Small nucleolar RNA SNORD11B: an 85-nucleotide RNA sequence from Gopherus evgoodei. The base pairs follow the family's consensus structure, which was predicted with WAR. Rfam 15.1 lists 733 matches to the family in 632 species.
RNA sequence: UAAUGGCAGUGAUGAUACCUGUAUUGUUGCUCGCCUGAUGUACAAACAUGAGGGUGCACAGUCACUACCUCAUCUGAUGCCAUCU
Numbered sequence: 001u002a003a004u005g006g007c008a009g010u011g012a013u014g015a016u017a018c019c020u021g022u023a024u025u026g027u028u029g030c031u032c033g034c035c036u037g038a039u040g041u042a043c044a045a046a047c048a049u050g051a052g053g054g055u056g057c058a059c060a061g062u063c064a065c066u067a068c069c070u071c072a073u074c075u076g077a078u079g080c081c082a083u084c085u
Base pairs, nucleotide, nucleotide: 003083004082005081006080007079
For this family Rfam cites "snoSeeker: an advanced computational package for screening of guide and orphan snoRNA genes in the human genome" (Yang et al., Nucleic Acids Res, 2006). Rfam links the family to the GO terms nucleolus and RNA processing. The match comes from Rfam's covariance-model search (83 bits). By type it is a C/D-box small nucleolar RNA.